Background:
Shown here is a 59-nucleotide RNA from Ligilactobacillus hayakitensis, a member of the family "Transposase-1 RNA". Rfam classes the family as a small RNA.
RNA sequence: CUAUCUCAGUUAGUCAAUGUCAUUACCCUCUUGUUAGGAUAUGGGAAUACUAGCGUUAA
Dot-bracket structure: ........((((((.....((((...(((......)))..))))....)))))).....